[Rfam]
RNA sequence: ACGAGCAUCGCUCGCGCCGCUUAUAUAUGGUCAUAAUAUGGUUGACUGUCUCUACCCGACACCGUAAAUGUCGGACUAUAAGCAAAAAGGACAGUUGU
Numbered sequence: 001a002c003g004a005g006c007a008u009c010g011c012u013c014g015c016g017c018c019g020c021u022u023a024u025a026u027a028u029g030g031u032c033a034u035a036a037u038a039u040g041g042u043u044g045a046c047u048g049u050c051u052c053u054a055c056c057c058g059a060c061a062c063c064g065u066a067a068a069u070g071u072c073g074g075a076c077u078a079u080a081a082g083c084a085a086a087a088a089g090g091a092c093a094g095u096u097g098u
Stems, first nucleotide, its partner, number of pairs: 019083007029047005056074006
A member of the RNA family "Purine riboswitch aptamer" from Enterococcus canis, 98 nucleotides long. Riboswitches are metabolite binding domains within certain messenger RNAs that serve as precision sensors for their corresponding targets. The literature on the family includes a 2003 paper in Cell by Mandal et al., "Riboswitches Control Fundamental Biochemical Pathways in Bacillus subtilis and Other Bacteria".